A member of the RNA family "Small nucleolar RNA R38", 74 nucleotides long.
Rfam links the family to the GO terms nucleolus and RNA processing.
Rfam's curators write: snoR38 is a C/D box small nucleolar RNA conserved across yeast, human, Arabidopsis and rice. It is encoded in the intron of elongation factor-1 gamma in both pombe and cerevisiae. snoR38 guides the methylation of 2'-O-ribose sites in 28S rRNA.
Rfam classes the family as a C/D-box small nucleolar RNA.

RNA sequence: AUAAGCCUAUGAUGGAUUGGUUAUCCCUGUCUGAAGAUUUCAGCUGAGGGAAAAUACUCUAUUCUGAGGCUUAG
Numbered sequence: 001a002u003a004a005g006c007c008u009a010u011g012a013u014g015g016a017u018u019g020g021u022u023a024u025c026c027c028u029g030u031c032u033g034a035a036g037a038u039u040u041c042a043g044c045u046g047a048g049g050g051a052a053a054a055u056a057c058u059c060u061a062u063u064c065u066g067a068g069g070c071u072u073a074g
Stems, first nucleotide, its partner, number of pairs: 002073006
Dot-bracket structure: .((((((............................................................)))))).